[Rfam]
RNA sequence: UGACCUAUACAAAAGGGUAUAGGUGUUGGAGAUUGUUGUCAAGAACUUUGCAAAGAUUUCUUUCGAUAUGUCUU
Dot-bracket structure: ..((((((((......))))))))...............................((.((....)).)).....

This 74-nucleotide RNA belongs to the Rfam family "RT-6 RNA". The sequence is in the family's curated seed alignment. Pairs were carried over by alignment from the consensus structure, which is taken from published work. By type it is a small RNA.